A member of the RNA family "Glycine riboswitch aptamer" from Candidatus Methylaffinis lahnbergensis, 102 nucleotides long. It scores 54 bits against the family's covariance model.

RNA sequence: AAGACCCCGGCGGAAGAGACUGGCUCGCGCACGAUGUGCCGAGCUGGCGCCGAAGGCGCAACCGCCCCGGAAACGCUCAGGCCCACGGACCGCUCGGGGAUG
Numbered sequence: 001a002a003g004a005c006c007c008c009g010g011c012g013g014a015a016g017a018g019a020c021u022g023g024c025u026c027g028c029g030c031a032c033g034a035u036g037u038g039c040c041g042a043g044c045u046g047g048c049g050c051c052g053a054a055g056g057c058g059c060a061a062c063c064g065c066c067c068c069g070g071a072a073a074c075g076c077u078c079a080g081g082c083c084c085a086c087g088g089a090c091c092g093c094u095c096g097g098g099g100a101u102g
Stems, first nucleotide, its partner, number of pairs: 006097002009094005020047008049082003052078002056076003062070002